Rfam assigns this 75-nucleotide RNA from Candidatus Marinamargulisbacteria bacterium SCGC AG-343-K17 to the family "tRNA". A reference for the family is Lowe and Eddy (1997), "tRNAscan-SE: a program for improved detection of transfer RNA genes in genomic sequence", Nucleic Acids Res. Taxonomically the source falls in Candidatus Marinamargulisbacteria (Bacteria, Bacillati, Candidatus Margulisiibacteriota).
[Rfam]
RNA sequence: GGAGGCGUAGUUCAGUUGGUUUAGAACGCUGGCCUGUCACGCCAGAGGUCGAGGGUUCGAGUCCCUUCGUCUCCG
Numbered sequence: 001g002g003a004g005g006c007g008u009a010g011u012u013c014a015g016u017u018g019g020u021u022u023a024g025a026a027c028g029c030u031g032g033c034c035u036g037u038c039a040c041g042c043c044a045g046a047g048g049u050c051g052a053g054g055g056u057u058c059g060a061g062u063c064c065c066u067u068c069g070u071c072u073c074c075g
Stems, first nucleotide, its partner, number of pairs: 001074007010027004029045005051067005